About this RNA:
The record is a 281-nucleotide RNA sequence from Polypedilum vanderplanki, which matches "Nuclear RNase P" in Rfam. The base pairs follow the family's consensus structure, which is taken from published work.
[Rfam]
RNA sequence: GCUAGAAUCAAUCUUGCAUUUGGGGCUCACAAACGAGCAUCUGAUUGCUCAUAUAUUUUUAAAGCCUCGGGAAGGUCUGAGAUAAAGUGUGCAUUGCAAUGUGCAAUGAAUUUCCUAGAAGGAUAUUUCAAUAAUUGAAAGUAAAAGAACCAGAAAUUCUACAUGUUGAUUAUGUUAACAUGUAUUGGAAACUUUUAUUACUAGCCGUUUUAGUCUAAUAUGCAAGCUGCUCUUUUCUUUGAAAAUGAGUAGAACUCAAUUCAGACUAGUCUGUUUCUAGC
Numbered sequence: 001g002c003u004a005g006a007a008u009c010a011a012u013c014u015u016g017c018a019u020u021u022g023g024g025g026c027u028c029a030c031a032a033a034c035g036a037g038c039a040u041c042u043g044a045u046u047g048c049u050c051a052u053a054u055a056u057u058u059u060u061a062a063a064g065c066c067u068c069g070g071g072a073a074g075g076u077c078u079g080a081g082a083u084a085a086a087g088u089g090u091g092c093a094u095u096g097c098a099a100u101g102u103g104c105a106a107u108g109a110a111u112u113u114c115c116u117a118g119a120a121g122g123a124u125a126u127u128u129c130a131a132u133a134a135u136u137g138a139a140a141g142u143a144a145a146a147g148a149a150c151c152a153g154a155a156a157u158u159c160u161a162c163a164u165g166u167u168g169a170u171u172a173u174g175u176u177a178a179c180a181u182g183u184a185u186u187g188g189a190a191a192c193u194u195u196u197a198u199u200a201c202u203a204g205c206c207g208u209u210u211u212a213g214u215c216u217a218a219u220a221u222g223c224a225a226g227c228u229g230c231u232c233u234u235u236u237c238u239u240u241g242a243a244a245a246u247g248a249g250u251a252g253a254a255c256u257c258a259a260u261u262c263a264g265a266c267u268a269g270u271c272u273g274u275u276u277c278u279a280g281c
Stems, first nucleotide, its partner, number of pairs: 001281004009273002013226007022068005035050005077264005086202004111125001113123003126140005141198007160184003227252006